A member of the RNA family "tRNA" from Actinomyces massiliensis, 74 nucleotides long.
[Rfam]
RNA sequence: UCCCCCUUAGCUCAGUUGGUCAGAGCACCUGACUCUUAAUCAGGGUGUCCAGGGUUCGAGUCCCUGAGGGGGUA
Numbered sequence: 001u002c003c004c005c006c007u008u009a010g011c012u013c014a015g016u017u018g019g020u021c022a023g024a025g026c027a028c029c030u031g032a033c034u035c036u037u038a039a040u041c042a043g044g045g046u047g048u049c050c051a052g053g054g055u056u057c058g059a060g061u062c063c064c065u066g067a068g069g070g071g072g073u074a
Stems, first nucleotide, its partner, number of pairs: 002072006010026004028044005050066005
Description
It scores 67 bits against the family's covariance model. The source organism's lineage runs through Bacteria, Bacillati, Actinomycetales, Actinomycetaceae and Actinomyces massiliensis.